[Rfam]
RNA sequence: AUGGAGCUUUGUUGGCAAAAAUCCAUCCAUGGCUCUUAAAGAAGCUUGGAGGAUUUUGUGUGAGAGGGUUCUCACCCUUCACACUCCACCUCCUACAGUUUGCUUAUGCUUUAGCCAUUGGUUUCUCUAAUCAAUCACCACAAAAGGGUAUACAUGGAGGAACAUAAUUCUCUGAGUGGCAUGAAGCAGAGAAGCUAUGGCCACAUCUUAGCAAACCGGCAAGUCACAAAAAGGCAAUGGACUCUCUCUCAUUAAAGGGUCCU
Numbered sequence: 001a002u003g004g005a006g007c008u009u010u011g012u013u014g015g016c017a018a019a020a021a022u023c024c025a026u027c028c029a030u031g032g033c034u035c036u037u038a039a040a041g042a043a044g045c046u047u048g049g050a051g052g053a054u055u056u057u058g059u060g061u062g063a064g065a066g067g068g069u070u071c072u073c074a075c076c077c078u079u080c081a082c083a084c085u086c087c088a089c090c091u092c093c094u095a096c097a098g099u100u101u102g103c104u105u106a107u108g109c110u111u112u113a114g115c116c117a118u119u120g121g122u123u124u125c126u127c128u129a130a131u132c133a134a135u136c137a138c139c140a141c142a143a144a145a146g147g148g149u150a151u152a153c154a155u156g157g158a159g160g161a162a163c164a165u166a167a168u169u170c171u172c173u174g175a176g177u178g179g180c181a182u183g184a185a186g187c188a189g190a191g192a193a194g195c196u197a198u199g200g201c202c203a204c205a206u207c208u209u210a211g212c213a214a215a216c217c218g219g220c221a222a223g224u225c226a227c228a229a230a231a232a233g234g235c236a237a238u239g240g241a242c243u244c245u246c247u248c249u250c251a252u253u254a255a256a257g258g259g260u261c262c263u
Stems, first nucleotide, its partner, number of pairs: 060089002098216006117206002240261005